Purine riboswitch aptamer: a 102-nucleotide RNA sequence from Lysinibacillus sphaericus. The family's consensus secondary structure is taken from published work.
RNA sequence: AUUGUAAAUUAAAUAAGUCGUCGUAUAAUGUCGGGGAUAAGGCCCGUGAGUUUCUACCAAGUUACCGUAAAUAACUUGACUACGAUUUUAGUUUUAUACGAA
Numbered sequence: 001a002u003u004g005u006a007a008a009u010u011a012a013a014u015a016a017g018u019c020g021u022c023g024u025a026u027a028a029u030g031u032c033g034g035g036g037a038u039a040a041g042g043c044c045c046g047u048g049a050g051u052u053u054c055u056a057c058c059a060a061g062u063u064a065c066c067g068u069a070a071a072u073a074a075c076u077u078g079a080c081u082a083c084g085a086u087u088u089u090a091g092u093u094u095u096a097u098a099c100g101a102a
Stems, first nucleotide, its partner, number of pairs: 020086006029049001032046004058078007

Lineage of the source: Bacteria > Bacillota > Bacilli > Bacillaceae > Lysinibacillus.